[Rfam]
This 224-nucleotide RNA from Paraburkholderia fynbosensis belongs to the Rfam family "Burkholderia sRNA Bp1_Cand871_SIPHT". By type it is a small RNA. Its family is annotated with bacterial biofilm matrix in the Gene Ontology.

RNA sequence: UCGCCCACAAUGCCUCAACGGUUUCAACACGGAUGUGGCUGGGUGCAUGGUGUGAGCGGAUACGAUGCACUUGCCGGUCGGCCUAUGCCGAAGCCCUGAGAAGGGGCAUCCCUGCUGGGGCCGUAUUCGGCGCAGGGUCGCCGUCUCAGGUGCUCCAACUUUGGUCUCCUCGCGCUAACCCCGUAGCGUGUGGUUUUUAGCGGGCUCCAGGCCCGCUUUUUUUU
Numbered sequence: 001u002c003g004c005c006c007a008c009a010a011u012g013c014c015u016c017a018a019c020g021g022u023u024u025c026a027a028c029a030c031g032g033a034u035g036u037g038g039c040u041g042g043g044u045g046c047a048u049g050g051u052g053u054g055a056g057c058g059g060a061u062a063c064g065a066u067g068c069a070c071u072u073g074c075c076g077g078u079c080g081g082c083c084u085a086u087g088c089c090g091a092a093g094c095c096c097u098g099a100g101a102a103g104g105g106g107c108a109u110c111c112c113u114g115c116u117g118g119g120g121c122c123g124u125a126u127u128c129g130g131c132g133c134a135g136g137g138u139c140g141c142c143g144u145c146u147c148a149g150g151u152g153c154u155c156c157a158a159c160u161u162u163g164g165u166c167u168c169c170u171c172g173c174g175c176u177a178a179c180c181c182c183g184u185a186g187c188g189u190g191u192g193g194u195u196u197u198u199a200g201c202g203g204g205c206u207c208c209a210g211g212c213c214c215g216c217u218u219u220u221u222u223u224u
Base pairs, nucleotide, nucleotide: 005164006163007162018124019123020122021121022120023119024118025117026116028114029113031111032110033109034108035107036106037075038074039073043070044069045068046067047066048065050063051062052061053060078091079090080089081088082087094105095104096103097102127148129146130145168193169192171190172189173188174187175186176185177184199217200216201215202214203213204212205211206210